A member of the RNA family "Makes More Granules Regulator RNA (mmgR)" from Novosphingobium endophyticum, 78 nucleotides long. It scores 58 bits against the family's covariance model. Rfam links the family to the GO terms response to nitrogen compound, protein binding and DNA-templated transcription, termination. It is annotated as a small RNA.
[Rfam]
RNA sequence: CGAAACUGCCUUUCAGGCAUCCUCUCCCAAAACUUCCACGGCCCGGUCGGUAACGACCGGGCCUUUUUUUCGGCCGGU
Numbered sequence: 001c002g003a004a005a006c007u008g009c010c011u012u013u014c015a016g017g018c019a020u021c022c023u024c025u026c027c028c029a030a031a032a033c034u035u036c037c038a039c040g041g042c043c044c045g046g047u048c049g050g051u052a053a054c055g056a057c058c059g060g061g062c063c064u065u066u067u068u069u070u071c072g073g074c075c076g077g078u
Stems, first nucleotide, its partner, number of pairs: 008018004040063009